[Rfam]
RNA sequence: GUUUCGGGCGAGGGGCUUUGGGAGGUCUCUCUGGUAUGGAAACGACGCUGUCCAAAUCCGGUACUGGCGCGGCACCCCACCCGAGCCGGU
Numbered sequence: 001g002u003u004u005c006g007g008g009c010g011a012g013g014g015g016c017u018u019u020g021g022g023a024g025g026u027c028u029c030u031c032u033g034g035u036a037u038g039g040a041a042a043c044g045a046c047g048c049u050g051u052c053c054a055a056a057u058c059c060g061g062u063a064c065u066g067g068c069g070c071g072g073c074a075c076c077c078c079a080c081c082c083g084a085g086c087c088g089g090u
Stems, first nucleotide, its partner, number of pairs: 001043005010031008063090006070083003
A member of the RNA family "Rhodo-rpoB RNA" from Sulfitobacter sp. HI0023, 90 nucleotides long. It scores 44 bits against the family's covariance model.